RNA sequence: GGUCAAGCGUGUAACUGGCGUAGAUGGAUAACCAUCGGGAAGCACGCCCGCGGGAGCCCCUCCUGCCGACCGCCGCUCGCCUGGGCACUCAAU
Numbered sequence: 001g002g003u004c005a006a007g008c009g010u011g012u013a014a015c016u017g018g019c020g021u022a023g024a025u026g027g028a029u030a031a032c033c034a035u036c037g038g039g040a041a042g043c044a045c046g047c048c049c050g051c052g053g054g055a056g057c058c059c060c061u062c063c064u065g066c067c068g069a070c071c072g073c074c075g076c077u078c079g080c081c082u083g084g085g086c087a088c089u090c091a092a093u
Base pairs, nucleotide, nucleotide: 004050007047008046009045010044011043012042015039016038017081018080019079020078024035025034026033027032072086073085074084
The family of this 93-nucleotide RNA from Povalibacter uvarum is "ZMP/ZTP riboswitch aptamer (pfl RNA motif)".
NCBI's taxonomy places the organism under Bacteria, Pseudomonadati, Pseudomonadota, Gammaproteobacteria, Povalibacter.